[Rfam]
RNA: Ribosomal protein L20 leader
Organism: Vagococcus lutrae
RNA sequence: AAAAUAAAGCAGGAGCACCCGCUUCUCGCCUGAGUAGACAAAACGUCUCUGGGCUAGAUAAUUUUUUAGAUAGCUAUAUGAGUAGCUAUUUAUGAAAUCGGUGGGAGUUCUUAUGUUAAGAACUCUUUUUUUCUGUUUA
Dot-bracket structure: ..........((((((....)))))).(((.....((((.....))))...))).................................................((((((((((...)))))))))).............